[Rfam]
RNA sequence: UGACGUCAGUUCCUCUUCCUGCUCUCAGUUCAGCAGUGUGGAUUUUAUGAUGUCACAGAAUAAACUGGUGUCCAUUUCACCCGGGAGAUAUUUGGGGGUGGCGGUGCUGCCCCUGUAACCUCCUGGCUUUGCUGGACCCCACAAAU
Numbered sequence: 001u002g003a004c005g006u007c008a009g010u011u012c013c014u015c016u017u018c019c020u021g022c023u024c025u026c027a028g029u030u031c032a033g034c035a036g037u038g039u040g041g042a043u044u045u046u047a048u049g050a051u052g053u054c055a056c057a058g059a060a061u062a063a064a065c066u067g068g069u070g071u072c073c074a075u076u077u078c079a080c081c082c083g084g085g086a087g088a089u090a091u092u093u094g095g096g097g098g099u100g101g102c103g104g105u106g107c108u109g110c111c112c113c114u115g116u117a118a119c120c121u122c123c124u125g126g127c128u129u130u131g132c133u134g135g136a137c138c139c140c141a142c143a144a145a146u
Stems, first nucleotide, its partner, number of pairs: 001055008014042003018038001020035004068138001070137005081126007089118001094114007
RNA: Small nucleolar RNA SNORA79
Organism: Gadus morhua